[Rfam]
A member of the RNA family "TPP riboswitch aptamer (THI element)" from Aurantiacibacter xanthus, 121 nucleotides long. Rfam's curators write: Vitamin B(1) in its active form thiamin pyrophosphate (TPP) is an essential coenzyme that is synthesised by coupling of pyrimidine and thiazole moieties in bacteria. The previously detected thiamin-regulatory element, thi box was extended, resulting in a new, highly conserved RNA secondary structure, the THI element, which is widely distributed in eubacteria and also occurs in some archaea. Analysis of operon structures identified a large number of new candidate thiamin-regulated genes, mostly transporters, in various prokaryotic organisms. The THI element is a riboswitch that directly binds to TPP to regulate gene expression through a variety of mechanisms in archaea, bacteria and eukaryotes. through a variety of mechanisms in archaea, bacteria and eukaryotes. The match comes from Rfam's covariance-model search (57 bits).

RNA sequence: ACUUGCCCCGGGGGAGCGCUGCCUGAUCGCAUCAGGCACGGCGCUUGAGAGGGCGGCACGAGCCGCCGACCCGCUGAACCUGAUCCGGUUAAGACCGGCGGAGGGAGGGAAGCGGUUUUCU
Numbered sequence: 001a002c003u004u005g006c007c008c009c010g011g012g013g014g015a016g017c018g019c020u021g022c023c024u025g026a027u028c029g030c031a032u033c034a035g036g037c038a039c040g041g042c043g044c045u046u047g048a049g050a051g052g053g054c055g056g057c058a059c060g061a062g063c064c065g066c067c068g069a070c071c072c073g074c075u076g077a078a079c080c081u082g083a084u085c086c087g088g089u090u091a092a093g094a095c096c097g098g099c100g101g102a103g104g105g106a107g108g109g110a111a112g113c114g115g116u117u118u119u120c121u
Base pairs, nucleotide, nucleotide: 004111006109007108008107009073010072011071012070015045016044017043018042019041020040021039052067053066054065055064056063079104080103081102085098086097087096088095